c-di-AMP riboswitch aptamer (ydaO/yuaA leader): a 136-nucleotide RNA sequence from Chroococcidiopsis thermalis.
NCBI's taxonomy places the organism under Bacteria, Cyanobacteriota, Chroococcidiopsidales, Chroococcidiopsidaceae, Chroococcidiopsis thermalis.

[Rfam]
RNA sequence: UAAAUAAGUCAGCCUAAUCCAAUCAUAAUUGGAGCGGAGGAACCGAAUUUUGGGGCUUAUCUCUGAGAUAAACAGAGAGGGACAUCUCUCAGUCCUAGCCCGUCAGCUAACUUCGUAGGCGUUGAGAGGAGACUGU
Numbered sequence: 001u002a003a004a005u006a007a008g009u010c011a012g013c014c015u016a017a018u019c020c021a022a023u024c025a026u027a028a029u030u031g032g033a034g035c036g037g038a039g040g041a042a043c044c045g046a047a048u049u050u051u052g053g054g055g056c057u058u059a060u061c062u063c064u065g066a067g068a069u070a071a072a073c074a075g076a077g078a079g080g081g082a083c084a085u086c087u088c089u090c091a092g093u094c095c096u097a098g099c100c101c102g103u104c105a106g107c108u109a110a111c112u113u114c115g116u117a118g119g120c121g122u123u124g125a126g127a128g129g130a131g132a133c134u135g136u
Base pairs, nucleotide, nucleotide: 012120013119014118018033019032020031021030022029034116035115036114037113038112039111044052045051053101054100055099061077062076063075064074080095081094082093083092